[Rfam]
RNA: Small nucleolar RNA Z103
Organism: Macleaya cordata
RNA sequence: AUGGAGGUGAUGAUCCUUUCCCCAAAUGAUCGACUCUGAUUAUACUAUGCGUUUUGUUUAAUUCUCUUUAUAAGAGAGAAUUUCCAAGCCAGGACUCUGAUCCAU
Numbered sequence: 001a002u003g004g005a006g007g008u009g010a011u012g013a014u015c016c017u018u019u020c021c022c023c024a025a026a027u028g029a030u031c032g033a034c035u036c037u038g039a040u041u042a043u044a045c046u047a048u049g050c051g052u053u054u055u056g057u058u059u060a061a062u063u064c065u066c067u068u069u070a071u072a073a074g075a076g077a078g079a080a081u082u083u084c085c086a087a088g089c090c091a092g093g094a095c096u097c098u099g100a101u102c103c104a105u
Base pairs, nucleotide, nucleotide: 001105002104003103004102005101
Dot-bracket structure: (((((...............................................................................................)))))